RNA sequence: UGGCUUUCAUGAUGUCAGACGCAGAAACUAUGAUGUAGUGGCGUCUGUCUGAUCCUCAGCCA
Numbered sequence: 001u002g003g004c005u006u007u008c009a010u011g012a013u014g015u016c017a018g019a020c021g022c023a024g025a026a027a028c029u030a031u032g033a034u035g036u037a038g039u040g041g042c043g044u045c046u047g048u049c050u051g052a053u054c055c056u057c058a059g060c061c062a
Stems, first nucleotide, its partner, number of pairs: 001062004014049001016047007028038003
Rfam assigns this 62-nucleotide sequence from Bagarius yarrelli to the family "Selenocysteine insertion sequence 1". It is annotated as a cis-regulatory element. From the family's description: The incorporation of selenocysteine into a protein sequence is directed by an in-frame UGA codon (usually a stop codon) within the coding region of the mRNA. Selenoprotein mRNAs contain a conserved secondary structure in the 3' UTR that is required for the distinction of UGA stop from UGA selenocysteine. Gene Ontology term of the family: selenocysteine incorporation. A reference for the family is Walczak et al. (1996), "A novel RNA structural motif in the selenocysteine insertion element of eukaryotic selenoprotein mRNAs", RNA.